Overview
Rfam assigns this 167-nucleotide RNA from Brassica carinata to the family "U12 minor spliceosomal RNA". The pairing is the family consensus, mapped onto this sequence.
[Rfam]
RNA sequence: UUGCCUUAAACUAAUGAGUAAGGAAAACAAAGCGAGCGGUGAGAGCCGGUCGCAGCGCUUACAGAAAAACAUAGAAAGUGGCGCAAGAAUUUAUGGAAGGGAAAUAGGCUGGCCGAGUCGCUGACGCUGCUUACUUUUGCAGAACUCGACUCGCGCGGGCCUCCCCA
Number, nucleotide and partner (000 for none) at each position: 001u000002u000003g000004c023005c022006u021007u020008a019009a000010a000011c000012u000013a000014a000015u000016g000017a000018g000019u008020a007021a006022g005023g004024a000025a000026a000027a000028c000029a000030a000031a000032g053033c052034g051035a050036g000037c048038g047039g046040u000041g000042a000043g000044a000045g000046c039047c038048g037049g000050u035051c034052g033053c032054a000055g084056c083057g082058c081059u080060u000061a000062c000063a000064g000065a000066a000067a000068a000069a000070c000071a000072u000073a000074g000075a000076a000077a000078g000079u000080g059081g058082c057083g056084c055085a000086a000087g000088a000089a000090u000091u000092u000093a000094u000095g000096g000097a000098a000099g166100g165101g164102a000103a000104a000105u000106a162107g161108g160109c159110u158111g000112g156113c000114c153115g152116a000117g150118u149119c148120g147121c000122u000123g000124a000125c000126g000127c142128u141129g140130c139131u000132u000133a000134c000135u000136u000137u000138u000139g130140c129141a128142g127143a000144a000145c000146u000147c120148g119149a118150c117151u000152c115153g114154c000155g000156c112157g000158g110159g109160c108161c107162u106163c000164c101165c100166c099167a000
About this RNA:
The source organism's lineage runs through Eukaryota, Euphyllophyta, Spermatophyta, Gunneridae and Brassica. It scores 90 bits against the family's covariance model.